[Rfam]
RNA sequence: GUUGCUUCAUAAUGGUGAACUCUCCCUUGAUUGAUAGUGGGAGACGUUCAAGUUUCCGAAGCAUAGAUUGAUCGUACUCUUUGUGCCAGUUUUAAACAGCGAGGUGUAUGCUUUCUGGUCGCACUCUGCUACCUGUCUACUGGUAUAUUU
Numbered sequence: 001g002u003u004g005c006u007u008c009a010u011a012a013u014g015g016u017g018a019a020c021u022c023u024c025c026c027u028u029g030a031u032u033g034a035u036a037g038u039g040g041g042a043g044a045c046g047u048u049c050a051a052g053u054u055u056c057c058g059a060a061g062c063a064u065a066g067a068u069u070g071a072u073c074g075u076a077c078u079c080u081u082u083g084u085g086c087c088a089g090u091u092u093u094a095a096a097c098a099g100c101g102a103g104g105u106g107u108a109u110g111c112u113u114u115c116u117g118g119u120c121g122c123a124c125u126c127u128g129c130u131a132c133c134u135g136u137c138u139a140c141u142g143g144u145a146u147a148u149u150u
Stems, first nucleotide, its partner, number of pairs: 003063006016050005021044005085144006098130003103125004
Overview: This 150-nucleotide RNA from Tripterygium wilfordii belongs to the Rfam family "small nucleolar RNA snoR137". It is annotated as an H/ACA-box small nucleolar RNA. The family has 4 seed sequences and 808 matches in Rfam 15.1.